[Rfam]
Shown here is a 221-nucleotide RNA from Starkeya sp. ORNL1, a member of the family "Bradyrhizobiaceae sRNA BjrC174". A reference for the family is Madhugiri et al. (2012), "Small RNAs of the Bradyrhizobium/Rhodopseudomonas lineage and their analysis", RNA Biol.
RNA sequence: CUCACGCGCUCGUCAACCGAAAUCAUGAAGUCGCCCGAUUUCGGCCCUUGCAACGCCAACGCGCAAGGCCAUUUUCACACCAUAGCGUUGGGCCGGUCCGCGAAGCGCUCCGGUUUCCCAGCCCCCCAGCCCCCCGUGGCGUUGAGUGGGCCGGCCUAUCGUUCCGCGUAGGUUCAAUCCCCCGAUUGAAAUCUCGGGCCGGCUCCCCAGCCGGCCCUAUU
Numbered sequence: 001c002u003c004a005c006g007c008g009c010u011c012g013u014c015a016a017c018c019g020a021a022a023u024c025a026u027g028a029a030g031u032c033g034c035c036c037g038a039u040u041u042c043g044g045c046c047c048u049u050g051c052a053a054c055g056c057c058a059a060c061g062c063g064c065a066a067g068g069c070c071a072u073u074u075u076c077a078c079a080c081c082a083u084a085g086c087g088u089u090g091g092g093c094c095g096g097u098c099c100g101c102g103a104a105g106c107g108c109u110c111c112g113g114u115u116u117c118c119c120a121g122c123c124c125c126c127c128a129g130c131c132c133c134c135c136g137u138g139g140c141g142u143u144g145a146g147u148g149g150g151c152c153g154g155c156c157u158a159u160c161g162u163u164c165c166g167c168g169u170a171g172g173u174u175c176a177a178u179c180c181c182c183c184g185a186u187u188g189a190a191a192u193c194u195c196g197g198g199c200c201g202g203c204u205c206c207c208c209a210g211c212c213g214g215c216c217c218u219a220u221u
Base pairs, nucleotide, nucleotide: 037174039053040052042050043049085167086166087165090157091156092155093154094153095152096151097150098149099148100147105142106141107140108139109138111136112135113134121130122129196217197216198215199214200213201212202211203210